[Rfam]
Nucleotides: 109
Stems, first nucleotide, its partner, number of pairs: 005107003009103006016096009026086007035077001037075007045067003
Number, partner (000 for none) and nucleotide at each position: 001000g002000u003000a004000a005107a006106u007105a008000c009103g010102u011101u012100u013099a014098c015000c016096c017095c018094a019093a020092u021091c022090c023089a024088c025000a026086u027085g028084g029083u030082u031081u032080g033000g034000g035077a036000g037075g038074g039073a040072u041071u042070g043069a044000g045067g046066u047065g048000g049000a050000a051000c052000u053000u054000a055000a056000a057000c058000u059000a060000a061000a062000u063000u064000c065047c066046a067045c068000c069043u070042c071041a072040a073039u074038c075037c076000a077035u078000c079000c080032c081031a082030a083029a084028c085027c086026a087000c088024g089023u090022g091021g092020a093019u094018u095017g096016g097000g098014g099013u100012g101011g102010a103009u104000u105007u106006g107005u108000g109000u

A member of the RNA family "MIR5565 microRNA precursor family" from Miscanthus lutarioriparius, 109 nucleotides long. The family's consensus secondary structure was predicted with RNAalifold. The match comes from Rfam's covariance-model search (84 bits).